[Rfam]
RNA sequence: CAUACACAGGCAAUGGCACUGGAAGAAUUCACGGGUUUAAUUAAACAAUCCCGUGGUCUCUUAGUGGCAUCACUGGUGGUGG
Numbered sequence: 001c002a003u004a005c006a007c008a009g010g011c012a013a014u015g016g017c018a019c020u021g022g023a024a025g026a027a028u029u030c031a032c033g034g035g036u037u038u039a040a041u042u043a044a045a046c047a048a049u050c051c052c053g054u055g056g057u058c059u060c061u062u063a064g065u066g067g068c069a070u071c072a073c074u075g076g077u078g079g080u081g082g
Stems, first nucleotide, its partner, number of pairs: 005078003009074002013070003017066002020063003023059001025058002029056006
The family of this 82-nucleotide sequence from Galleria mellonella is "mir-263 microRNA precursor family".
Its Rfam clan is "mir-182 clan".
Its family is annotated with RISC complex and miRNA-mediated post-transcriptional gene silencing in the Gene Ontology.